[Rfam]
RNA: HNH endonuclease-associated RNA and ORF (HEARO) RNA
RNA sequence: GUCAACUACCCACCACUAAGUCUAUAAGACUUGAAGUGGGGGCUUGUUAAAAGCCCUAGUUGUCUAGCCUAAGGCUUAACUGACUACGUUAGAAUGUUGCAUACCGUGGGAUGAUUCCCUAGUCCCACGCUCUAUGGCGGCUCUGUAAACAGUUUCUAUGGGAAGAAGCAGUCAACCGUAAGCCAUCUCGCUUUGAGAUGUUGCCAACACAUUCUAACAUUGGCGAAGGGAAACAAAC
Numbered sequence: 001g002u003c004a005a006c007u008a009c010c011c012a013c014c015a016c017u018a019a020g021u022c023u024a025u026a027a028g029a030c031u032u033g034a035a036g037u038g039g040g041g042g043c044u045u046g047u048u049a050a051a052a053g054c055c056c057u058a059g060u061u062g063u064c065u066a067g068c069c070u071a072a073g074g075c076u077u078a079a080c081u082g083a084c085u086a087c088g089u090u091a092g093a094a095u096g097u098u099g100c101a102u103a104c105c106g107u108g109g110g111a112u113g114a115u116u117c118c119c120u121a122g123u124c125c126c127a128c129g130c131u132c133u134a135u136g137g138c139g140g141c142u143c144u145g146u147a148a149a150c151a152g153u154u155u156c157u158a159u160g161g162g163a164a165g166a167a168g169c170a171g172u173c174a175a176c177c178g179u180a181a182g183c184c185a186u187c188u189c190g191c192u193u194u195g196a197g198a199u200g201u202u203g204c205c206a207a208c209a210c211a212u213u214c215u216a217a218c219a220u221u222g223g224c225g226a227a228g229g230g231a232a233a234c235a236a237a238c
Stems, first nucleotide, its partner, number of pairs: 001064001003062006010042002013039002017033007043053003067224003071220001072085002075082001088218010101135002105129008113234001115232006137179004144174002149172002152169006